Shown here is a 250-nucleotide RNA sequence from Rhizopus azygosporus, a member of the family "Group I catalytic intron". For this family Rfam cites "Self-splicing of group I introns" (Cech, Annu Rev Biochem, 1990). Pairs were carried over by alignment from the consensus structure, which is taken from published work.
RNA sequence: AUGCAUUCCUCAAUGAUGCAUAAGCUUCCGGAAUAAAUUCCAUUAAAACUAGGUGAAUUGCAAAGAAAUCUUAAAAAUAAGACAAUUUGCAGCUAAAUUUAAGUCAGUAUAUAUAUGAUUUAAAGAAGUUCAACGACUAACUGGUGAGUAAUACUAACAAUAAUCCAGACACGAGUGCCUAGCAUUAUCACAAUUAUUCCCCUAUUUGUUGAUAGUGAUGACAUAGUCUAAACUGUAUAGUGAUAUACAG
Numbered sequence: 001a002u003g004c005a006u007u008c009c010u011c012a013a014u015g016a017u018g019c020a021u022a023a024g025c026u027u028c029c030g031g032a033a034u035a036a037a038u039u040c041c042a043u044u045a046a047a048a049c050u051a052g053g054u055g056a057a058u059u060g061c062a063a064a065g066a067a068a069u070c071u072u073a074a075a076a077a078u079a080a081g082a083c084a085a086u087u088u089g090c091a092g093c094u095a096a097a098u099u100u101a102a103g104u105c106a107g108u109a110u111a112u113a114u115a116u117g118a119u120u121u122a123a124a125g126a127a128g129u130u131c132a133a134c135g136a137c138u139a140a141c142u143g144g145u146g147a148g149u150a151a152u153a154c155u156a157a158c159a160a161u162a163a164u165c166c167a168g169a170c171a172c173g174a175g176u177g178c179c180u181a182g183c184a185u186u187a188u189c190a191c192a193a194u195u196a197u198u199c200c201c202c203u204a205u206u207u208g209u210u211g212a213u214a215g216u217g218a219u220g221a222c223a224u225a226g227u228c229u230a231a232a233c234u235g236u237a238u239a240g241u242g243a244u245a246u247a248c249a250g
Base pairs, nucleotide, nucleotide: 001021002020003019004018005017006016007015027032049182050181051180052179054177055176059091060090061089062088063087064086069082070081071080072079073078092129093128098123099122105117133229135228136227137226138225139224185215186214187213188212189211190210193207235248236247237246238245239244